[Rfam]
RNA sequence: GUGCCUUAAACUAAUGAGUAAGGAAAAUAUGAGGCUUUGGUGACGCUUAGCAAUGCUCGAAUUGUAAGCGAACCUAUUUUUGAAGGGGUACAGGUCGUCCUGUGGCUGCCUGAACUACUUUUUUAGGCGGUCUAGUGAAGCGAUCUACCUC
Numbered sequence: 001g002u003g004c005c006u007u008a009a010a011c012u013a014a015u016g017a018g019u020a021a022g023g024a025a026a027a028u029a030u031g032a033g034g035c036u037u038u039g040g041u042g043a044c045g046c047u048u049a050g051c052a053a054u055g056c057u058c059g060a061a062u063u064g065u066a067a068g069c070g071a072a073c074c075u076a077u078u079u080u081u082g083a084a085g086g087g088g089u090a091c092a093g094g095u096c097g098u099c100c101u102g103u104g105g106c107u108g109c110c111u112g113a114a115c116u117a118c119u120u121u122u123u124u125a126g127g128c129g130g131u132c133u134a135g136u137g138a139a140g141c142g143a144u145c146u147a148c149c150u151c
Base pairs, nucleotide, nucleotide: 004023005022006021007020008019034051035050036049039046054070055069056068057067085151086150087149088148089147092146093145094144095143096142097141098140101135104132105131106130107129108128110126111125112124113123114122
Dot-bracket structure: ...(((((..........)))))..........(((..(......)..)))..((((.........))))..............(((((..(((((((..(..(((((.(((((.......))))).)))))..)....))))))))))))
Rfam assigns this 151-nucleotide RNA from Nasonia vitripennis to the family "U12 minor spliceosomal RNA".
The family is grouped with related families in Rfam's "U2 clan".
The pairing is the family consensus, mapped onto this sequence.
The sequence is in the family's curated seed alignment.
By type it is a spliceosomal small nuclear RNA.